Notes: Rfam assigns this 73-nucleotide RNA from Candidatus Midichloria mitochondrii to the family "tRNA". Transfer RNA (tRNA) molecules are approximately 80 nucleotides in length. Their secondary structure includes four short double-helical elements and three loops (D, anti-codon, and T loops). Further hydrogen bonds mediate the characteristic L-shaped molecular structure. tRNAs have two regions of fundamental functional importance: the anti-codon, which is responsible for specific mRNA codon recognition, and the 3' end, to which the tRNAs corresponding amino acid is attached (by aminoacyl-tRNA synthetases). tRNAs cope with the degeneracy of the genetic code in two manners: having more than one tRNA (with a specific anti-codon) for a particular amino acid; and 'wobble' base-pairing, i.e. permitting non-standard base-pairing at the 3rd anti-codon position. It scores 71 bits against the family's covariance model. Its family is annotated with triplet codon-amino acid adaptor activity in the Gene Ontology. It is annotated as a transfer RNA. Taxonomically the source falls in Candidatus Midichloria mitochondrii (Bacteria, Pseudomonadati, Rickettsiales, Candidatus Midichloria). Rfam 15.1 lists 5,335,975 matches to the family in 14,413 species.
RNA sequence: GCAUUUGUAGCUCAGUGGAUAGAGCGUCGCCCUCCGGAGGCGAAGGCCGUGGGUUCGAAUCCCGCCAAAUGCG
Numbered sequence: 001g002c003a004u005u006u007g008u009a010g011c012u013c014a015g016u017g018g019a020u021a022g023a024g025c026g027u028c029g030c031c032c033u034c035c036g037g038a039g040g041c042g043a044a045g046g047c048c049g050u051g052g053g054u055u056c057g058a059a060u061c062c063c064g065c066c067a068a069a070u071g072c073g
Base pairs, nucleotide, nucleotide: 001072002071003070004069005068006067007066010025011024012023013022027043028042029041030040031039049065050064051063052062053061